[Rfam]
RNA sequence: CUCUUAUUAAGAGUGGUGGAGGGAAUAGGCCCGACGAAACCCGGCAACCUGCAGUUGGCUAAACUGCAAAGGUGCUAAAUCCUACAGUUUUUAAGAAUCUGAAAGAUAAGAG
Numbered sequence: 001c002u003c004u005u006a007u008u009a010a011g012a013g014u015g016g017u018g019g020a021g022g023g024a025a026u027a028g029g030c031c032c033g034a035c036g037a038a039a040c041c042c043g044g045c046a047a048c049c050u051g052c053a054g055u056u057g058g059c060u061a062a063a064c065u066g067c068a069a070a071g072g073u074g075c076u077a078a079a080u081c082c083u084a085c086a087g088u089u090u091u092u093a094a095g096a097a098u099c100u101g102a103a104a105g106a107u108a109a110g111a112g
Stems, first nucleotide, its partner, number of pairs: 001112008013042001015041003021032003026084004043076004048072002050068006080104001085101003089097002

Record summary:
A member of the RNA family "SAM riboswitch aptamer (S box leader)" from Oceanobacillus indicireducens, 112 nucleotides long. On this family, see Baird et al., RNA 2012: "YbxF and YlxQ are bacterial homologs of L7Ae and bind K-turns but not K-loops". The organism belongs to Oceanobacillus, within Bacteria. It scores 91 bits against the family's covariance model.